RNA: epsC RNA
Organism: Radiobacillus deserti
RNA sequence: UGGUGAUGUCUCCUUACCACUAUCAAUGGAGGUACUCGGCUGUUUCGUGGGUGUUAGUUAUGCCUUAGACGCAUUCGUUGUCGAUGGGACGGCAUGAGGUGGGGGGGGAGCU
Numbered sequence: 001u002g003g004u005g006a007u008g009u010c011u012c013c014u015u016a017c018c019a020c021u022a023u024c025a026a027u028g029g030a031g032g033u034a035c036u037c038g039g040c041u042g043u044u045u046c047g048u049g050g051g052u053g054u055u056a057g058u059u060a061u062g063c064c065u066u067a068g069a070c071g072c073a074u075u076c077g078u079u080g081u082c083g084a085u086g087g088g089a090c091g092g093c094a095u096g097a098g099g100u101g102g103g104g105g106g107g108g109a110g111c112u
Base pairs, nucleotide, nucleotide: 001019002018003017004016007034008033009032010031011030012029013028035098036097037096038095039093040092041091042090043089044088045087046086049065050064051063052062053061054060068082069081070080071079104112105111